[Rfam]
The family of this 98-nucleotide RNA from Caenorhabditis japonica is "mir-228 microRNA precursor family".

RNA sequence: CUCCGUUCCGCAAUGGCACUGCAUGAAUUCACGGCUUGCAUCCGGCCACACGGACAUUUACGCCGCGGAUUGUGCGGUACCAUAGCGGACGGACGGGC
Numbered sequence: 001c002u003c004c005g006u007u008c009c010g011c012a013a014u015g016g017c018a019c020u021g022c023a024u025g026a027a028u029u030c031a032c033g034g035c036u037u038g039c040a041u042c043c044g045g046c047c048a049c050a051c052g053g054a055c056a057u058u059u060a061c062g063c064c065g066c067g068g069a070u071u072g073u074g075c076g077g078u079a080c081c082a083u084a085g086c087g088g089a090c091g092g093a094c095g096g097g098c
Base pairs, nucleotide, nucleotide: 007089008088009087010086013083014082015081016080018078019077020076021075022074023073024072025071026070028069029068030067032065033064034063

The source organism's lineage runs through Eukaryota, Opisthokonta, Chromadorea, Rhabditina and Caenorhabditis.